[Rfam]
RNA sequence: ACACAGGGAAGGAGGUGGUCCGACAAAUUGAGUGAUUUAUGGACAUGUGAGGUGGCUGCCCGCUAGCAGCGCCGGGGUAAAGCCUGCGCGCGCUGGCGAAUUCCCCGCAGUCACCCGGCCCCCGAGCCCUCCGGUCUGUCCAACCAGGUACCAAGGCUCGGGGGCUGCCCCAU
Numbered sequence: 001a002c003a004c005a006g007g008g009a010a011g012g013a014g015g016u017g018g019u020c021c022g023a024c025a026a027a028u029u030g031a032g033u034g035a036u037u038u039a040u041g042g043a044c045a046u047g048u049g050a051g052g053u054g055g056c057u058g059c060c061c062g063c064u065a066g067c068a069g070c071g072c073c074g075g076g077g078u079a080a081a082g083c084c085u086g087c088g089c090g091c092g093c094u095g096g097c098g099a100a101u102u103c104c105c106c107g108c109a110g111u112c113a114c115c116c117g118g119c120c121c122c123c124g125a126g127c128c129c130u131c132c133g134g135u136c137u138g139u140c141c142a143a144c145c146a147g148g149u150a151c152c153a154a155g156g157c158u159c160g161g162g163g164g165c166u167g168c169c170c171c172a173u
Base pairs, nucleotide, nucleotide: 014060015059016058017057018056019055061098062097063096064095065094066093067092069091070090071089072088074085075084076083116167117166118165119164120163121162122161123160124159125158126157127156128155130148131147133145134144135143

The record is a 173-nucleotide RNA from Mycolicibacterium mageritense, which matches "Actinobacteria sRNA Ms_IGR-5" in Rfam. For this family Rfam cites "Identification of small RNAs in Mycobacterium smegmatis using heterologous Hfq" (Li et al., RNA, 2013). Rfam's curators put it in the seed alignment. The pairing is the family consensus, mapped onto this sequence.